[Rfam]
RNA sequence: ACUAAUCAGAAAAACAAGGGCAGCCCGCUGCCCUCUCGAUUGCUGUAAAGAAGCAUGGACAGACAGAGCGCCGGUCAGUCGUUCCCUGACGGGCGUUAACCACAAGCUUCACAUCAAUCUUCAGGGUAGCCUCGCUACCCUUUUUUACCGGAGUUUG
Numbered sequence: 001a002c003u004a005a006u007c008a009g010a011a012a013a014a015c016a017a018g019g020g021c022a023g024c025c026c027g028c029u030g031c032c033c034u035c036u037c038g039a040u041u042g043c044u045g046u047a048a049a050g051a052a053g054c055a056u057g058g059a060c061a062g063a064c065a066g067a068g069c070g071c072c073g074g075u076c077a078g079u080c081g082u083u084c085c086c087u088g089a090c091g092g093g094c095g096u097u098a099a100c101c102a103c104a105a106g107c108u109u110c111a112c113a114u115c116a117a118u119c120u121u122c123a124g125g126g127u128a129g130c131c132u133c134g135c136u137a138c139c140c141u142u143u144u145u146u147a148c149c150g151g152a153g154u155u156u157g
Base pairs, nucleotide, nucleotide: 012156013155014154018033019032020031021030022029023028034125035124036123038122039118040117041116042115045112046111056102057101058100061096070094071093072092074090075089076088077087078086

Shown here is a 157-nucleotide sequence from Duffyella gerundensis, a member of the family "sroC RNA". This family consists of a number of bacterial sroC RNA genes of around 160 bases in length. sroC is found in several Enterobacterial species. It base-pairs with GcvB. This interaction triggers the degradation of GcvB by RNase E, alleviating the GcvB-mediated mRNA repression of other amino acid-related transport and metabolic genes. The base pairs follow the family's consensus structure, which was predicted with PFOLD. The family's RNA type in Rfam is small RNA. The organism belongs to Duffyella, within Bacteria.